[Rfam]
RNA sequence: CGUAUUGUUCGGUCUACAUAAUGACGAGUCAGGUCAGGCUCCGCACUAGGUUCGGUCACCUAGGGGAUGGAGACAUGGAAGGGAUCUCGUGCGCUAUAAGUCUAACGAAAGUUGAGCUUGCGACAUGGGUCUAUGCCUGGAUAAGUUGUGUAGGUUGCCGCAUACG
Number, nucleotide and partner (000 for none) at each position: 001c166002g165003u164004a163005u162006u000007g000008u000009u000010c160011g159012g158013u157014c153015u152016a151017c150018a149019u148020a147021a146022u145023g000024a000025c139026g138027a000028g137029u000030c135031a000032g000033g000034u078035c077036a076037g000038g000039c072040u071041c070042c069043g068044c000045a000046c063047u062048a061049g060050g059051u058052u000053c000054g000055g000056u000057c000058a051059c050060c049061u048062a047063g046064g000065g000066g000067a000068u043069g042070g041071a040072g039073a000074c000075a000076u036077g035078g034079a000080a000081g000082g132083g131084a130085u129086c128087u000088c127089g126090u125091g124092c000093g000094c000095u122096a000097u120098a000099a118100g117101u000102c116103u115104a113105a112106c111107g000108a000109a000110a000111g106112u105113u104114g000115a103116g102117c100118u099119u000120g097121c000122g095123a000124c091125a090126u089127g088128g086129g085130u084131c083132u082133a000134u000135g030136c000137c028138u026139g025140g000141a000142u000143a000144a000145g022146u021147u020148g019149u018150g017151u016152a015153g014154g000155u000156u000157g013158c012159c011160g010161c000162a005163u004164a003165c002166g001
RNA: Tombusvirus 3' cap-independent translation element